[Rfam]
RNA sequence: UGGCGCCCGACAGGGCCUGGAAAUGAGGGAUCCAUGGGAAGAGACGCUACAAGGACGUCGACCGCUAACGAAAUAAAGGAGUCAAUUUCUUCCAAUCACCCGCGGAACCUGCCGCGUCGAAUCGAAGGGUAAGUGAACGCUGUCCGAAAUGGGACAGAAUUACGCCAGCUCAAUACUAUUAGGACCAAUUAAAAGAGGCUUAAAGAUACGAGGGAGGUAAGGUUAAAGUAAGAUUUUGUUUAAAAUUUUCUUUAUUUUGUAAAAGACACUUGCCCUU
Numbered sequence: 001u002g003g004c005g006c007c008c009g010a011c012a013g014g015g016c017c018u019g020g021a022a023a024u025g026a027g028g029g030a031u032c033c034a035u036g037g038g039a040a041g042a043g044a045c046g047c048u049a050c051a052a053g054g055a056c057g058u059c060g061a062c063c064g065c066u067a068a069c070g071a072a073a074u075a076a077a078g079g080a081g082u083c084a085a086u087u088u089c090u091u092c093c094a095a096u097c098a099c100c101c102g103c104g105g106a107a108c109c110u111g112c113c114g115c116g117u118c119g120a121a122u123c124g125a126a127g128g129g130u131a132a133g134u135g136a137a138c139g140c141u142g143u144c145c146g147a148a149a150u151g152g153g154a155c156a157g158a159a160u161u162a163c164g165c166c167a168g169c170u171c172a173a174u175a176c177u178a179u180u181a182g183g184a185c186c187a188a189u190u191a192a193a194a195g196a197g198g199c200u201u202a203a204a205g206a207u208a209c210g211a212g213g214g215a216g217g218u219a220a221g222g223u224u225a226a227a228g229u230a231a232g233a234u235u236u237u238g239u240u241u242a243a244a245a246u247u248u249u250c251u252u253u254a255u256u257u258u259g260u261a262a263a264a265g266a267c268a269c270u271u272g273c274c275c276u277u
Base pairs, nucleotide, nucleotide: 006029007028008027012024035042088129089128090126091125096121097119101116102115103114104113105112139155143153144152145151146150161202162201164199165198166197210252211251212250213249214248215247216246219237220236221235222234223233224232262277263276265274267272